[Rfam]
RNA sequence: GCCGAUAGCACGCCGAACUCCAUCCAGUGGGCGAGGGAUUCCGACCGCGGAUGGAGGCGGGGGACCCACCAGGUCCGCCGAGAUCGGACCGGAGCCGCAUACGGCUCCUUGGGGUGAAGCCAACGUCGUUCGCCGAUGUACGACCGCGGCCGGGUGAUCCUCUCCACGGCGAAUCCAACCCGAACCCGACAGCUGACCUCGUAGGCGUGUACCGAGAGGAAUU
Numbered sequence: 001g002c003c004g005a006u007a008g009c010a011c012g013c014c015g016a017a018c019u020c021c022a023u024c025c026a027g028u029g030g031g032c033g034a035g036g037g038a039u040u041c042c043g044a045c046c047g048c049g050g051a052u053g054g055a056g057g058c059g060g061g062g063g064a065c066c067c068a069c070c071a072g073g074u075c076c077g078c079c080g081a082g083a084u085c086g087g088a089c090c091g092g093a094g095c096c097g098c099a100u101a102c103g104g105c106u107c108c109u110u111g112g113g114g115u116g117a118a119g120c121c122a123a124c125g126u127c128g129u130u131c132g133c134c135g136a137u138g139u140a141c142g143a144c145c146g147c148g149g150c151c152g153g154g155u156g157a158u159c160c161u162c163u164c165c166a167c168g169g170c171g172a173a174u175c176c177a178a179c180c181c182g183a184a185c186c187c188g189a190c191a192g193c194u195g196a197c198c199u200c201g202u203a204g205g206c207g208u209g210u211a212c213c214g215a216g217a218g219g220a221a222u223u
Stems, first nucleotide, its partner, number of pairs: 011207004018056008057202006067111002112187003120149002152181004